[Rfam]
RNA sequence: AAGGGAUAUGCCGAAAACCCUUAACAGAGUAGGCG
Numbered sequence: 001a002a003g004g005g006a007u008a009u010g011c012c013g014a015a016a017a018c019c020c021u022u023a024a025c026a027g028a029g030u031a032g033g034c035g
Stems, first nucleotide, its partner, number of pairs: 002021004010034003
Rfam assigns this 35-nucleotide RNA from Filimonas zeae to the family "DUF805b RNA". The family's RNA type in Rfam is cis-regulatory element. The match comes from Rfam's covariance-model search (45 bits). The base pairs follow the family's consensus structure, which is taken from published work. Its Rfam clan is "DUF805 clan". NCBI's taxonomy places the organism under Bacteria, Chitinophagia, Chitinophagales, Chitinophagaceae, Filimonas.